[Rfam]
Background
Rfam assigns this 63-nucleotide sequence from Prunus avium to the family "Plastid-ccsA-ndhD-1 3UTR RNA".

RNA sequence: AAACCAUUAAGAACCAUUUGAAUCAUUCCAUUUCCAUCACUUGAUUCAAAUGGUUCUCACAAA
Numbered sequence: 001a002a003a004c005c006a007u008u009a010a011g012a013a014c015c016a017u018u019u020g021a022a023u024c025a026u027u028c029c030a031u032u033u034c035c036a037u038c039a040c041u042u043g044a045u046u047c048a049a050a051u052g053g054u055u056c057u058c059a060c061a062a063a
Stems, first nucleotide, its partner, number of pairs: 008059001010057016
The match comes from Rfam's covariance-model search (60 bits). From the family's description: Plastid-ccsA-ndhD-1 is a non-coding RNA (ncRNA) recognised in plastids. It was found in the three prime untranslated region (3UTR) of ccsA and ndhD genes, its 3UTR location suggests a role in transcript maturation.